Rfam assigns this 59-nucleotide sequence from Actinomyces graevenitzii to the family "msiK RNA". The match comes from Rfam's covariance-model search (68 bits). The source organism's lineage runs through Bacteria, Actinomycetales, Actinomycetaceae, Actinomyces and Actinomyces graevenitzii. Rfam classes the family as a cis-regulatory element.
[Rfam]
RNA sequence: CAUGGACACCUUUCACAACGGAUCGUCCGGCACGUACCUGCCGGUGAAGGGAAGCAAGU
Numbered sequence: 001c002a003u004g005g006a007c008a009c010c011u012u013u014c015a016c017a018a019c020g021g022a023u024c025g026u027c028c029g030g031c032a033c034g035u036a037c038c039u040g041c042c043g044g045u046g047a048a049g050g051g052a053a054g055c056a057a058g059u
Stems, first nucleotide, its partner, number of pairs: 009051007027044006